RNA sequence: UAUCUUUGCACGCUGAUUGAGGGACAAUCAGAUACAUAAAAAUCAUUUAAAUAAAUAUUGGAAUG
Numbered sequence: 001u002a003u004c005u006u007u008g009c010a011c012g013c014u015g016a017u018u019g020a021g022g023g024a025c026a027a028u029c030a031g032a033u034a035c036a037u038a039a040a041a042a043u044c045a046u047u048u049a050a051a052u053a054a055a056u057a058u059u060g061g062a063a064u065g
Base pairs, nucleotide, nucleotide: 014030015029016028017027018026019025
RNA: S15-Flavobacteria ribosomal protein leader
Organism: Flagellimonas nanhaiensis